[Rfam]
RNA sequence: GCAUGGCUGAAUUCUGCACUAGCUUUCCUCAGUAGUCAGUGCAGUCAGACACUAUGCCAGAGUAAAUUCCUGUUUCACACUCUGGUGUGCUUUUUCUGUGAGAACGAGCAUGCCCUUGGAAGUGGGAUACAGAA
Numbered sequence: 001g002c003a004u005g006g007c008u009g010a011a012u013u014c015u016g017c018a019c020u021a022g023c024u025u026u027c028c029u030c031a032g033u034a035g036u037c038a039g040u041g042c043a044g045u046c047a048g049a050c051a052c053u054a055u056g057c058c059a060g061a062g063u064a065a066a067u068u069c070c071u072g073u074u075u076c077a078c079a080c081u082c083u084g085g086u087g088u089g090c091u092u093u094u095u096c097u098g099u100g101a102g103a104a105c106g107a108g109c110a111u112g113c114c115c116u117u118g119g120a121a122g123u124g125g126g127a128u129a130c131a132g133a134a
Base pairs, nucleotide, nucleotide: 001057002056003055004054005053006052014044015043016042017041018040019039070125071124072123073122074121075120076119080118084114085113086112087111088110089109090108091107092106

Annotation
Small nucleolar RNA SNORA15: a 134-nucleotide RNA sequence from Oreotrochilus melanogaster. Rfam links the family to the GO terms RNA processing and nucleolus. The organism belongs to Oreotrochilus, within Eukaryota. Rfam 15.1 lists 974 matches to the family in 624 species. Rfam describes the family as follows. ACA15 is a member of the H/ACA class of snoRNA that guide the sites of modification of uridines to pseudouridines.